Shown here is a 121-nucleotide RNA from Panax ginseng, a member of the family "MIR6135 microRNA precursor family". The sequence is in the family's curated seed alignment.

[Rfam]
RNA sequence: AUGAAGUUAUUUUUUUGGUAAGUUGGUCAAUUGGCCAAUAAAAUACUGACACACAUACAACUUCGUCUGCGUGUGAGUAUUCUAUUGUCAAUUGACCAACUUAUCCAAAAAUAAACUUCAU
Numbered sequence: 001a002u003g004a005a006g007u008u009a010u011u012u013u014u015u016u017g018g019u020a021a022g023u024u025g026g027u028c029a030a031u032u033g034g035c036c037a038a039u040a041a042a043a044u045a046c047u048g049a050c051a052c053a054c055a056u057a058c059a060a061c062u063u064c065g066u067c068u069g070c071g072u073g074u075g076a077g078u079a080u081u082c083u084a085u086u087g088u089c090a091a092u093u094g095a096c097c098a099a100c101u102u103a104u105c106c107a108a109a110a111a112u113a114a115a116c117u118u119c120a121u
Base pairs, nucleotide, nucleotide: 001121002120003119004118005117006116007115008114012111013110014109015108018104019103020102021101022100023099024098025097026096027095028094029093030092031091032090033089034088036087037086038085039084040083042081043080044079045078047076049074051072052071054069055068